[Rfam]
RNA sequence: UCGCAAUAGACGGGGAGCUAGCGGCACCUUGUAACCUACAAUCCGCUAUAGUAGGGUCGAAUUCCUAUCGAAGGUCUAAUCAUGUGUGGUCAGUACUUUUGAUUUGGUGUUGAGGAAAAAGUCUUUUACAACGAAAAACCUACGAACGGGUCAGAUCCGGAAGGAAGCAGCCAUAAGGGGGACACUUUUCUUGUGUAAAAGGGUACUUUUUCUGAGUCAAAGAGAAAGGUAACGCAUGGAUGGUUAUAUCGUAGAUAGGUUUGCGA
Numbered sequence: 001u002c003g004c005a006a007u008a009g010a011c012g013g014g015g016a017g018c019u020a021g022c023g024g025c026a027c028c029u030u031g032u033a034a035c036c037u038a039c040a041a042u043c044c045g046c047u048a049u050a051g052u053a054g055g056g057u058c059g060a061a062u063u064c065c066u067a068u069c070g071a072a073g074g075u076c077u078a079a080u081c082a083u084g085u086g087u088g089g090u091c092a093g094u095a096c097u098u099u100u101g102a103u104u105u106g107g108u109g110u111u112g113a114g115g116a117a118a119a120a121g122u123c124u125u126u127u128a129c130a131a132c133g134a135a136a137a138a139c140c141u142a143c144g145a146a147c148g149g150g151u152c153a154g155a156u157c158c159g160g161a162a163g164g165a166a167g168c169a170g171c172c173a174u175a176a177g178g179g180g181g182a183c184a185c186u187u188u189u190c191u192u193g194u195g196u197a198a199a200a201g202g203g204u205a206c207u208u209u210u211u212c213u214g215a216g217u218c219a220a221a222g223a224g225a226a227a228g229g230u231a232a233c234g235c236a237u238g239g240a241u242g243g244u245u246a247u248a249u250c251g252u253a254g255a256u257a258g259g260u261u262u263g264c265g266a
Stems, first nucleotide, its partner, number of pairs: 001266006009058003012030004017025003035055005064259006073250003077246001079244005085238004093230001096228005104221002106218003114213009123201006129193002133190004139181003143177001149172003156165003

Annotation: Bacterial large signal recognition particle RNA: a 266-nucleotide RNA from Anaerobacillus alkalidiazotrophicus. A search with the family's covariance model found it, with a score of 153 bits. Gene Ontology terms of the family: signal recognition particle, plasma membrane targeting and SRP-dependent cotranslational protein targeting to membrane, signal sequence recognition. For this family Rfam cites "SRPDB: Signal Recognition Particle Database" (Rosenblad et al., Nucleic Acids Res, 2003). About the family: The signal recognition particle (SRP) is a universally conserved ribonucleoprotein involved in the co-translational targeting of proteins to membranes.